Rfam assigns this 299-nucleotide RNA sequence from Menidia menidia to the family "Metazoan signal recognition particle RNA".
RNA sequence: GCCGGGUGUGGUGGCGUGCUCCUGUAAUCCCAGUUACUGGGAGGCUGAGGCUGGAGGACUGUUUGAGCUCAGGAGCUCUGAGCUGCAGUGGACUAUGCUGAUCGGGUGUCCUCACUAAGGUCGGUAUGGAUAUGGUGCUCCUGGGGGAGCCCGGGACCACCAGGUCUUCUAAGGAGGGGUGCACCGGCCCAGGUCUGAAACGGAGCAGGUCAAAGCCCCCGUGCUGCUCAGUAGUGGGAUCACACCUGAGAAUAGACACUGUGGAGCAGCCUGAGUAAUACAGCAGGACCCAGUCUCUU
Numbered sequence: 001g002c003c004g005g006g007u008g009u010g011g012u013g014g015c016g017u018g019c020u021c022c023u024g025u026a027a028u029c030c031c032a033g034u035u036a037c038u039g040g041g042a043g044g045c046u047g048a049g050g051c052u053g054g055a056g057g058a059c060u061g062u063u064u065g066a067g068c069u070c071a072g073g074a075g076c077u078c079u080g081a082g083c084u085g086c087a088g089u090g091g092a093c094u095a096u097g098c099u100g101a102u103c104g105g106g107u108g109u110c111c112u113c114a115c116u117a118a119g120g121u122c123g124g125u126a127u128g129g130a131u132a133u134g135g136u137g138c139u140c141c142u143g144g145g146g147g148a149g150c151c152c153g154g155g156a157c158c159a160c161c162a163g164g165u166c167u168u169c170u171a172a173g174g175a176g177g178g179g180u181g182c183a184c185c186g187g188c189c190c191a192g193g194u195c196u197g198a199a200a201c202g203g204a205g206c207a208g209g210u211c212a213a214a215g216c217c218c219c220c221g222u223g224c225u226g227c228u229c230a231g232u233a234g235u236g237g238g239a240u241c242a243c244a245c246c247u248g249a250g251a252a253u254a255g256a257c258a259c260u261g262u263g264g265a266g267c268a269g270c271c272u273g274a275g276u277a278a279u280a281c282a283g284c285a286g287g288a289c290c291c292a293g294u295c296u297c298u299u
Base pairs, nucleotide, nucleotide: 001045002044003043004023005022006021008019009018010017028042029041030040047297048296049295050294051293052292053291054290059286060285061284062283063282067276068275069274070273071272072271073270078269079268080267083264084263085262086261087260088259089258090257093255094254095253096252098250102249103248104247105246106245107244108243109242110238111237113236114235115234116233117232119229120228122226123225124224125223126222127221128167129166130165131164133162134161135160136159137158139156140155141154142153143152144151145150168174169173176219177218178217179216180215186211187210188209189208194203195202

Source information
Rfam classes the family as a non-coding RNA gene. The base pairs follow the family's consensus structure, which is taken from published work.